Shown here is a 182-nucleotide RNA sequence from Prochlorococcus sp. AG-442-M23, a member of the family "permuted transfer-messenger RNA". NCBI's taxonomy places the organism under Bacteria, Bacillati, Cyanophyceae, Synechococcales, Prochlorococcus. Its family is annotated with RNA catabolic process in the Gene Ontology. Rfam's curators write: Bacterial tmRNA, also known as 10Sa RNA or SsrA, is named for its dual tRNA and mRNA-like properties. Its role is to liberate the mRNA from a stalled ribosome. To accomplish this part of the tmRNA is used as a reading frame that ends in a translation stop signal. The base pairs follow the family's consensus structure, which is taken from published work. Rfam classes the family as a non-coding RNA gene.

RNA sequence: GGUGAUCUCAACCGAUGUUUCGGACAGCGGUUCGAUUCCGCUCAACUCCAUCCUCUUUUGGGGUUGUAAUGGUUUCGACGGGGCGUAAGGAAGAUGACUGAAGCCUGCUCGGUUAGAGCAAAAACACAAACGCUAACAAAAUCGUUAGUUUCUCCCGUCAAACAGCACCAGUUGCCGUUUGA
Number, nucleotide and partner (000 for none) at each position: 001g099002g098003u097004g000005a095006u000007c000008u000009c000010a000011a000012c000013c000014g000015a000016u085017g084018u083019u000020u081021c080022g079023g000024a000025c000026a042027g041028c040029g039030g038031u000032u000033c000034g000035a000036u000037u000038c030039c029040g028041c027042u026043c066044a065045a064046c063047u062048c061049c060050a000051u000052c000053c000054u000055c000056u000057u000058u000059u000060g049061g048062g047063g046064u045065u044066g043067u000068a000069a000070u000071g000072g000073u000074u000075u000076c000077g000078a000079c022080g021081g020082g000083g018084c017085g016086u000087a000088a000089g000090g000091a000092a000093g000094a000095u005096g000097a003098c002099u001100g000101a000102a000103g000104c000105c000106u000107g000108c000109u000110c000111g000112g000113u000114u000115a000116g000117a000118g000119c000120a000121a000122a000123a000124a000125c000126a000127c000128a000129a000130a000131c000132g000133c000134u000135a000136a000137c000138a000139a000140a000141a000142u000143c000144g000145u000146u000147a000148g000149u000150u000151u000152c000153u000154c000155c000156c000157g000158u000159c000160a000161a000162a000163c000164a000165g000166c000167a000168c000169c000170a000171g000172u000173u000174g000175c000176c000177g000178u000179u000180u000181g000182a000